This 117-nucleotide RNA from Gracilibacillus halophilus belongs to the Rfam family "PyrR binding site".

RNA sequence: GGUACCUUUAAUUCAGUCCCGUGAGGCUGACAAGGACAUUGGAUAGCAGAAGGGAAAAUUGUAUCUUUUAUACCCUUUUGUCUCGCUUCUUGUCAGUUGGGCAAGAAGUUUUUUAUU
Numbered sequence: 001g002g003u004a005c006c007u008u009u010a011a012u013u014c015a016g017u018c019c020c021g022u023g024a025g026g027c028u029g030a031c032a033a034g035g036a037c038a039u040u041g042g043a044u045a046g047c048a049g050a051a052g053g054g055a056a057a058a059u060u061g062u063a064u065c066u067u068u069u070a071u072a073c074c075c076u077u078u079u080g081u082c083u084c085g086c087u088u089c090u091u092g093u094c095a096g097u098u099g100g101g102c103a104a105g106a107a108g109u110u111u112u113u114u115a116u117u
Stems, first nucleotide, its partner, number of pairs: 005035004013030006046081009056071001058069001085109010

Rfam 15.1 lists 1,498 matches to the family in 930 species. Rfam classes the family as a cis-regulatory element. The match comes from Rfam's covariance-model search (60 bits). NCBI's taxonomy places the organism under Bacteria, Bacillati, Bacilli, Bacillaceae, Gracilibacillus halophilus. On this family, see Bonner et al., Nucleic Acids Res 2001: "Molecular recognition of pyr mRNA by the Bacillus subtilis attenuation regulatory protein PyrR".